[Rfam]
RNA: Y RNA-like
Nucleotides: 120
Base pairs, nucleotide, nucleotide: 002116003115004114005113006112007111013102014101015100016099017098018097019096023091031090038054039053040052041051042050055066056065057064058063069085070084071083072082
Number, partner (000 for none) and nucleotide at each position: 001000c002116c003115g004114g005113c006112g007111a008000a009000u010000g011000c012000c013102g014101g015100u016099g017098g018097a019096a020000c021000u022000a023091c024000a025000g026000g027000a028000c029000g030000u031090g032000a033000a034000g035000g036000u037000u038054g039053c040052g041051g042050g043000u044000u045000c046000g047000a048000c049000u050042c051041c052040c053039g054038c055066c056065c057064c058063g059000g060000c061000g062000a063058c064057g065056g066055g067000u068000a069085g070084c071083u072082c073000a074000a075000c076000u077000g078000g079000a080000u081000a082072g083071a084070g085069c086000a087000a088000c089000g090031c091023g092000c093000a094000u095000g096019u097018u098017c099016c100015a101014c102013c103000a104000a105000c106000g107000a108000u109000c110000g111007u112006c113005g114004c115003c116002g117000c118000a119000c120000u